[Rfam]
RNA: Small nucleolar RNA U105B
Organism: Physeter macrocephalus
RNA sequence: CGCUCUGCGGCUGAUGACGGCACUGCUACUGAGCCUCUGUGAUUGCUUAGUCCCAAAGUACACGCUCUGAUGGACCAGGG
Numbered sequence: 001c002g003c004u005c006u007g008c009g010g011c012u013g014a015u016g017a018c019g020g021c022a023c024u025g026c027u028a029c030u031g032a033g034c035c036u037c038u039g040u041g042a043u044u045g046c047u048u049a050g051u052c053c054c055a056a057a058g059u060a061c062a063c064g065c066u067c068u069g070a071u072g073g074a075c076c077a078g079g080g
Stems, first nucleotide, its partner, number of pairs: 006074001008072002010021004029050005
Dot-bracket structure: .....(.((((((....)))).......(((((............)))))....................)).)......